[Rfam]
RNA sequence: AUCACAAAGGGCAAACCUGAUCGAAAGACAGGGACGCAAAGCCAUGGGUCUACAGCGAAAGCUAUGAUCGCCAGGCUGCUGAUU
Numbered sequence: 001a002u003c004a005c006a007a008a009g010g011g012c013a014a015a016c017c018u019g020a021u022c023g024a025a026a027g028a029c030a031g032g033g034a035c036g037c038a039a040a041g042c043c044a045u046g047g048g049u050c051u052a053c054a055g056c057g058a059a060a061g062c063u064a065u066g067a068u069c070g071c072c073a074g075g076c077u078g079c080u081g082a083u084u
Stems, first nucleotide, its partner, number of pairs: 001084001003081002011037002016032004021028002035070001040077004045073003048068003